[Rfam]
This 121-nucleotide RNA from Arminella tubonensis belongs to the Rfam family "Alphaproteobacterial ar14".

RNA sequence: GGUUAUCGAAGCGUUUCAACUCCUCCCGAGGCGCUUCGUCCCGACUGACAACACUCCUCCUCCCAGGUUGUCGGUCAUUAUCAAGAGCCCGGUGCACCUCCUCCCGCACCGGGCUUUUUUU
Number, nucleotide and partner (000 for none) at each position: 001g000002g000003u000004u000005a000006u000007c038008g037009a036010a000011g034012c033013g032014u031015u030016u029017c028018a000019a000020c000021u000022c000023c000024u000025c000026c000027c000028g017029a016030g015031g014032c013033g012034c011035u000036u009037c008038g007039u000040c000041c000042c000043g076044a075045c074046u073047g072048a071049c070050a069051a068052c067053a000054c000055u000056c000057c000058u000059c000060c000061u000062c000063c000064c000065a000066g000067g052068u051069u050070g049071u048072c047073g046074g045075u044076c043077a000078u000079u000080a000081u000082c000083a000084a000085g116086a115087g114088c113089c112090c111091g110092g109093u108094g107095c106096a000097c000098c000099u000100c000101c000102u000103c000104c000105c000106g095107c094108a093109c092110c091111g090112g089113g088114c087115u086116u085117u000118u000119u000120u000121u000

Overview
From the family's description: Smr14C2 was renamed NfeR1 (Nodule Formation Efficiency RNA) highly expressed in salt stress and during the symbiotic interaction on legume roots. The pairing is the family consensus, mapped onto this sequence. The match comes from Rfam's covariance-model search (110 bits).